[Rfam]
RNA sequence: CUACUAGGAUAAUGAUUUAACAGGGCGUCUUACUUGGUAACGAGUAAGAGGACCACUGGGUGAAUUGCUGGAACUUCCUAAAGCUUUGUCAACCACAGCGGAGUUGGAAACGACAAACGUCAUGGUUUGAAAAUGACAAGGAUACAUGGAUAAUCAGCAGCCAAGCUCCUUUCUCGAAAGAGUGGAGAAGGUUCAACGACUAGGAUAGACCACCUAAAGCAAAAGCUAUGGUGAUGAAAUCCGUAGGACAGCAAACGCUGUUCGAAGUGCCCAGCCCCUAUGAAUGAAUAGGGUGAAGAUAUAGUCUAACCAAUGAUUCGAAAGACAUUG
Number, nucleotide and partner (000 for none) at each position: 001c000002u025003a000004c023005u022006a000007g000008g000009a000010u000011a000012a000013u000014g000015a000016u000017u000018u000019a000020a000021c000022a005023g004024g000025g002026c000027g000028u000029c000030u000031u000032a000033c044034u043035u042036g000037g000038u000039a000040a000041c000042g035043a034044g033045u000046a000047a000048g000049a000050g000051g000052a000053c000054c000055a000056c274057u273058g272059g271060g000061u269062g268063a000064a000065u000066u159067g158068c157069u156070g155071g154072a000073a000074c000075u000076u150077c149078c148079u000080a000081a000082a000083g000084c000085u000086u000087u000088g000089u000090c000091a000092a000093c000094c000095a000096c000097a000098g000099c000100g000101g000102a000103g000104u000105u000106g000107g000108a000109a000110a000111c000112g000113a000114c000115a000116a000117a000118c000119g000120u000121c000122a000123u000124g000125g000126u000127u000128u000129g000130a000131a000132a000133a000134u000135g000136a000137c000138a000139a000140g000141g000142a000143u000144a000145c000146a000147u000148g078149g077150a076151u000152a000153a000154u071155c070156a069157g068158c067159a066160g192161c191162c000163a000164a000165g000166c000167u185168c184169c000170u000171u000172u000173c180174u179175c000176g000177a000178a000179a174180g173181a000182g000183u000184g168185g167186a000187g000188a000189a000190g000191g161192u160193u000194c000195a000196a307197c000198g306199a305200c304201u303202a302203g000204g000205a000206u000207a000208g000209a000210c000211c000212a000213c000214c000215u000216a000217a000218a000219g000220c000221a000222a000223a000224a000225g000226c000227u000228a000229u000230g000231g000232u000233g000234a000235u000236g000237a000238a000239a000240u000241c000242c000243g000244u000245a000246g000247g000248a000249c000250a000251g000252c000253a000254a000255a000256c000257g000258c000259u000260g000261u000262u000263c000264g000265a000266a000267g000268u062269g061270c000271c059272c058273a057274g056275c000276c293277c292278c291279u290280a289281u288282g000283a000284a000285u000286g000287a000288a281289u280290a279291g278292g277293g276294u000295g000296a000297a000298g000299a000300u000301a000302u202303a201304g200305u199306c198307u196308a000309a000310c000311c000312a000313a328314u327315g326316a000317u000318u325319c324320g000321a000322a000323a000324g319325a318326c315327a314328u313329u000330g000